[Rfam]
Description: The record is a 68-nucleotide sequence from Capsicum baccatum, which matches "Plastid-clpP 5UTR RNA" in Rfam. About the family: Plastid clpP is a non-coding RNA (ncRNA) recognised in plastids. It was found in the prime untranslated region (5UTR) of a protease complex subunit (clpP) in plastids, suggesting a posible cis-regulatory function. The literature on the family includes a 2023 paper in Plant Commun by Richter et al., "Retrograde signaling in plants: A critical review focusing on the GUN pathway and beyond".
RNA sequence: AAUUUAUUUGUAGGAAUAAAGAGAAUCAGAUUUAUUCUAUACUCGAUAAGUACCAAUACGCAAUGGGC
Numbered sequence: 001a002a003u004u005u006a007u008u009u010g011u012a013g014g015a016a017u018a019a020a021g022a023g024a025a026u027c028a029g030a031u032u033u034a035u036u037c038u039a040u041a042c043u044c045g046a047u048a049a050g051u052a053c054c055a056a057u058a059c060g061c062a063a064u065g066g067g068c
Stems, first nucleotide, its partner, number of pairs: 003020001005018005042067003050059003
Overview
The base pairs follow the family's consensus structure, which was predicted with LocARNA. The source organism's lineage runs through Eukaryota, Streptophyta, Solanales, Solanaceae and Capsicum.